The family of this 93-nucleotide RNA from Streptomyces sp. So13.3 is "ZMP/ZTP riboswitch aptamer (pfl RNA motif)".
Lineage of the source: Bacteria > Actinomycetota > Actinomycetes > Kitasatosporales > Streptomyces.
The base pairs follow the family's consensus structure, which is taken from published work.
A search with the family's covariance model found it, with a score of 47 bits.

[Rfam]
RNA sequence: GGCGUGAGCCGUGACUGGCGCUUGGAUGGGACCGACCAUCGGGGAGCGGCUCCGUCUCCUGACGAUGUGCUGCCGCGCGCCUGGGCCCUUCCC
Numbered sequence: 001g002g003c004g005u006g007a008g009c010c011g012u013g014a015c016u017g018g019c020g021c022u023u024g025g026a027u028g029g030g031a032c033c034g035a036c037c038a039u040c041g042g043g044g045a046g047c048g049g050c051u052c053c054g055u056c057u058c059c060u061g062a063c064g065a066u067g068u069g070c071u072g073c074c075g076c077g078c079g080c081c082u083g084g085g086c087c088c089u090u091c092c093c
Base pairs, nucleotide, nucleotide: 006052007051008050009049010048011047012046015043016042017081018080019079020078021077026039027038028037029036072086073085074084